[Rfam]
RNA sequence: GACCCCGGAGGUCCACACCCGACAGCGCGAUGCGCCCUCGGGUGCGUUUGUG
Numbered sequence: 001g002a003c004c005c006c007g008g009a010g011g012u013c014c015a016c017a018c019c020c021g022a023c024a025g026c027g028c029g030a031u032g033c034g035c036c037c038u039c040g041g042g043u044g045c046g047u048u049u050g051u052g
Base pairs, nucleotide, nucleotide: 016044017043018042019041020040021039022038025035026034027033028032

The record is a 52-nucleotide sequence, which matches "ffh sRNA" in Rfam. For this family Rfam cites "Identification of candidate structured RNAs in the marine organism 'Candidatus Pelagibacter ubique'" (Meyer et al., BMC Genomics, 2009). It is annotated as a small RNA.